A member of the RNA family "Bacterial RNase P class A" from Acinetobacter nectaris, 358 nucleotides long. Rfam classes the family as a ribozyme. Ribonuclease P (RNase P) is a ubiquitous endoribonuclease, found in archaea, bacteria and eukarya as well as chloroplasts and mitochondria. Pairs were carried over by alignment from the consensus structure, which is taken from published work. NCBI's taxonomy places the organism under Bacteria, Pseudomonadota, Moraxellaceae, Acinetobacter, Acinetobacter nectaris.
RNA sequence: GAAGUGAGCUGGACGGUCGCUGCUAUUAAGGUCUUCGUGACUAAAAUAGGGGAGGAAAGUCCGGGCUUCGCAGGGCAAGGUGCCAGGUAAUGCCUGGGUGGCGUAAGCCAACGGAAAGUGCAGCAGAGAGUAGACCGCCAUAUUUAUAUGGUAAGGGUGAAAGGGUGCGGUAAGAGCGCACCGCAUGUCUGGUAACAGUACAUGGCAUGGUAAACCCCACCUGAAGCAAGACCAAAUAGGAAUCCACAUAGGUAUGGCCCAUACUGGAUUCGGGUAGGUCGCUUGAGCGUAUGAGUGAUUGUACGCCUAGAGGAAUGAUCGUUCUCGACAGAACCCGGCUUACAGGCUCACUUCACAG
Numbered sequence: 001g002a003a004g005u006g007a008g009c010u011g012g013a014c015g016g017u018c019g020c021u022g023c024u025a026u027u028a029a030g031g032u033c034u035u036c037g038u039g040a041c042u043a044a045a046a047u048a049g050g051g052g053a054g055g056a057a058a059g060u061c062c063g064g065g066c067u068u069c070g071c072a073g074g075g076c077a078a079g080g081u082g083c084c085a086g087g088u089a090a091u092g093c094c095u096g097g098g099u100g101g102c103g104u105a106a107g108c109c110a111a112c113g114g115a116a117a118g119u120g121c122a123g124c125a126g127a128g129a130g131u132a133g134a135c136c137g138c139c140a141u142a143u144u145u146a147u148a149u150g151g152u153a154a155g156g157g158u159g160a161a162a163g164g165g166u167g168c169g170g171u172a173a174g175a176g177c178g179c180a181c182c183g184c185a186u187g188u189c190u191g192g193u194a195a196c197a198g199u200a201c202a203u204g205g206c207a208u209g210g211u212a213a214a215c216c217c218c219a220c221c222u223g224a225a226g227c228a229a230g231a232c233c234a235a236a237u238a239g240g241a242a243u244c245c246a247c248a249u250a251g252g253u254a255u256g257g258c259c260c261a262u263a264c265u266g267g268a269u270u271c272g273g274g275u276a277g278g279u280c281g282c283u284u285g286a287g288c289g290u291a292u293g294a295g296u297g298a299u300u301g302u303a304c305g306c307c308u309a310g311a312g313g314a315a316u317g318a319u320c321g322u323u324c325u326c327g328a329c330a331g332a333a334c335c336c337g338g339c340u341u342a343c344a345g346g347c348u349c350a351c352u353u354c355a356c357a358g
Stems, first nucleotide, its partner, number of pairs: 001354010011343001012323007020052002023049005057341003061338005066226004073260004078222005083097005098112001099110004113217002118215002120211002135156002137152006164182006183206001184204005189198003230280004240271006251265005287306008